RNA sequence: CACAGUAGCAGCGAUUGUCGGGUGCGAACCCCGACGGCCUUACGAGCAAGGGUUCCUCGGCACUGCUUAUCAGCCGAGGGUUAGCCGGUCCUCAGCUCCCCCGUAAGUCGACGGGAGCAAGGGGAAACAGGUUAAUAUUCCUGUGCCGCCGCGCAUUGAAAACUGACGCUUUGGGGUCGAUCGAGCCGGGCCUUCGCCCGGUCGAAUCAGGGACCACCGUGGAAGCCGUCACGGCACGAAGCGGUCUGAUCCUGAGAUAGCGCAAGUCGAUCCAACCCAGAGCCCGUGAAAAAGCGAGCGCGGUGUCCGUACCGAGAUCCGACUCAGGUGCUCUGCCGGCGAAAGGCAAGGCCUGU
Numbered sequence: 001c002a003c004a005g006u007a008g009c010a011g012c013g014a015u016u017g018u019c020g021g022g023u024g025c026g027a028a029c030c031c032c033g034a035c036g037g038c039c040u041u042a043c044g045a046g047c048a049a050g051g052g053u054u055c056c057u058c059g060g061c062a063c064u065g066c067u068u069a070u071c072a073g074c075c076g077a078g079g080g081u082u083a084g085c086c087g088g089u090c091c092u093c094a095g096c097u098c099c100c101c102c103g104u105a106a107g108u109c110g111a112c113g114g115g116a117g118c119a120a121g122g123g124g125a126a127a128c129a130g131g132u133u134a135a136u137a138u139u140c141c142u143g144u145g146c147c148g149c150c151g152c153g154c155a156u157u158g159a160a161a162a163c164u165g166a167c168g169c170u171u172u173g174g175g176g177u178c179g180a181u182c183g184a185g186c187c188g189g190g191c192c193u194u195c196g197c198c199c200g201g202u203c204g205a206a207u208c209a210g211g212g213a214c215c216a217c218c219g220u221g222g223a224a225g226c227c228g229u230c231a232c233g234g235c236a237c238g239a240a241g242c243g244g245u246c247u248g249a250u251c252c253u254g255a256g257a258u259a260g261c262g263c264a265a266g267u268c269g270a271u272c273c274a275a276c277c278c279a280g281a282g283c284c285c286g287u288g289a290a291a292a293a294g295c296g297a298g299c300g301c302g303g304u305g306u307c308c309g310u311a312c313c314g315a316g317a318u319c320c321g322a323c324u325c326a327g328g329u330g331c332u333c334u335g336c337c338g339g340c341g342a343a344a345g346g347c348a349a350g351g352c353c354u355g356u
Stems, first nucleotide, its partner, number of pairs: 017035006036353004044333004050313002055079006064072002086309003090123002095118006102110002127144005147305008163294002168283008179272005185202005207255004216245005225235003261266001319328002334348004